RNA sequence: UAGAACAAUGUAGAUAAGGGAAGUCGGCAAAAUAGAUCCGUAACUUCGGGAUAAGGAUUGGCUCUAAGGGUUGGGUGGGAAGGCGGCUAGUGCGAAGUGUGGGCUGCGUGCUGAGCUGGCUUUUGCUUUCGGGCGAAGGCUGGCUCGGCGUGCGGCCUGCGCCAACCUCUGGUUUGCCCCCACCGCUAACAACCAACUUAGAACUGGUACGGACAAGGGGAAUCUGACUGUCUAAUUAAAACAUAGCAUUGCGAUGGUCAGAAAGUGAUGUUGACGCAAUGUGAUUUCUGCCCAGUGCUCUGAAUGUCAAAGUGAAGAAAUUCAACCAAGCGCGGGUAAACGGCGGGAGUAACUAUGACUCUCUUAAGGUAGCCAAAUGCCUCGUCAUCUAAUUAGUGACGCGCAUGAAUGGAUUAACGAGAUUCCCACUGUCCCUAUCUACUAUCUAGCGAAACCACAGCCAAGGGAACGGGCUUGGCAGA
Numbered sequence: 001u002a003g004a005a006c007a008a009u010g011u012a013g014a015u016a017a018g019g020g021a022a023g024u025c026g027g028c029a030a031a032a033u034a035g036a037u038c039c040g041u042a043a044c045u046u047c048g049g050g051a052u053a054a055g056g057a058u059u060g061g062c063u064c065u066a067a068g069g070g071u072u073g074g075g076u077g078g079g080a081a082g083g084c085g086g087c088u089a090g091u092g093c094g095a096a097g098u099g100u101g102g103g104c105u106g107c108g109u110g111c112u113g114a115g116c117u118g119g120c121u122u123u124u125g126c127u128u129u130c131g132g133g134c135g136a137a138g139g140c141u142g143g144c145u146c147g148g149c150g151u152g153c154g155g156c157c158u159g160c161g162c163c164a165a166c167c168u169c170u171g172g173u174u175u176g177c178c179c180c181c182a183c184c185g186c187u188a189a190c191a192a193c194c195a196a197c198u199u200a201g202a203a204c205u206g207g208u209a210c211g212g213a214c215a216a217g218g219g220g221a222a223u224c225u226g227a228c229u230g231u232c233u234a235a236u237u238a239a240a241a242c243a244u245a246g247c248a249u250u251g252c253g254a255u256g257g258u259c260a261g262a263a264a265g266u267g268a269u270g271u272u273g274a275c276g277c278a279a280u281g282u283g284a285u286u287u288c289u290g291c292c293c294a295g296u297g298c299u300c301u302g303a304a305u306g307u308c309a310a311a312g313u314g315a316a317g318a319a320a321u322u323c324a325a326c327c328a329a330g331c332g333c334g335g336g337u338a339a340a341c342g343g344c345g346g347g348a349g350u351a352a353c354u355a356u357g358a359c360u361c362u363c364u365u366a367a368g369g370u371a372g373c374c375a376a377a378u379g380c381c382u383c384g385u386c387a388u389c390u391a392a393u394u395a396g397u398g399a400c401g402c403g404c405a406u407g408a409a410u411g412g413a414u415u416a417a418c419g420a421g422a423u424u425c426c427c428a429c430u431g432u433c434c435c436u437a438u439c440u441a442c443u444a445u446c447u448a449g450c451g452a453a454a455c456c457a458c459a460g461c462c463a464a465g466g467g468a469a470c471g472g473g474c475u476u477g478g479c480a481g482a
Stems, first nucleotide, its partner, number of pairs: 001448004010442007018434003035059005044049001060205002063202006069194005075183005082178003085174003089170002092167001097162031206210001218427007225419002229243003246282008257269004286413003290344003295341002297337004302333001305332003313324004345363006364368001384400005461478005

About this RNA: Eukaryotic large subunit ribosomal RNA: a 482-nucleotide part of an RNA from Sungouiella intermedia.